The family of this 128-nucleotide sequence from Operophtera brumata is "Small nucleolar RNA psi18S-841/snoR66". psi18S-841 is a member of the H/ACA class of snoRNA. This family is responsible for guiding the modification of uridine 841 in Drosophila 18S rRNA to pseudouridine. A search with the family's covariance model found it, with a score of 51 bits. NCBI's taxonomy places the organism under Eukaryota, Metazoa, Geometroidea, Larentiinae, Operophtera. Clan: SNORA28 clan. The family has 24 seed sequences and 108 matches in Rfam 15.1. It is annotated as an H/ACA-box small nucleolar RNA. Its family is annotated with nucleolus and RNA processing in the Gene Ontology.

[Rfam]
RNA sequence: UGCAAGGGCACUCUGUGUUAACCUAAAUCAGUAGGAUAAUAACAAUUUGUCACCUUGCUAAAAUAAAUCUAUCAAAACCUAUUCCGGAUAGCUUGGACUCGCUAUUUGGUCAUAGUGGUAGAUACAAU
Numbered sequence: 001u002g003c004a005a006g007g008g009c010a011c012u013c014u015g016u017g018u019u020a021a022c023c024u025a026a027a028u029c030a031g032u033a034g035g036a037u038a039a040u041a042a043c044a045a046u047u048u049g050u051c052a053c054c055u056u057g058c059u060a061a062a063a064u065a066a067a068u069c070u071a072u073c074a075a076a077a078c079c080u081a082u083u084c085c086g087g088a089u090a091g092c093u094u095g096g097a098c099u100c101g102c103u104a105u106u107u108g109g110u111c112a113u114a115g116u117g118g119u120a121g122a123u124a125c126a127a128u
Base pairs, nucleotide, nucleotide: 002058003057004056005055006054007053010050011049014044015043016042017040018039019038020037022035023034065128067123068122069121071119072118073117075116084109085108086107087106088105089104091102092101